SAM riboswitch aptamer (S box leader): a 108-nucleotide RNA sequence from Virgibacillus sp. SK37.
NCBI's taxonomy places the organism under Bacteria, Bacillota, Bacilli, Bacillaceae, Virgibacillus.
[Rfam]
RNA sequence: UUCUUAUCAAGAGAGGUGGAGGGAUUGGCCCUGCGAAACCUCGGCAACAGGCUCUGUGGAGUACUGUGCCAAAUCCAACAGACAUGUUAUUUGUCUGAAAGAUAAGAA
Numbered sequence: 001u002u003c004u005u006a007u008c009a010a011g012a013g014a015g016g017u018g019g020a021g022g023g024a025u026u027g028g029c030c031c032u033g034c035g036a037a038a039c040c041u042c043g044g045c046a047a048c049a050g051g052c053u054c055u056g057u058g059g060a061g062u063a064c065u066g067u068g069c070c071a072a073a074u075c076c077a078a079c080a081g082a083c084a085u086g087u088u089a090u091u092u093g094u095c096u097g098a099a100a101g102a103u104a105a106g107a108a
Stems, first nucleotide, its partner, number of pairs: 001108008013042005021031003025078004043070004048066002051062004074100001079097006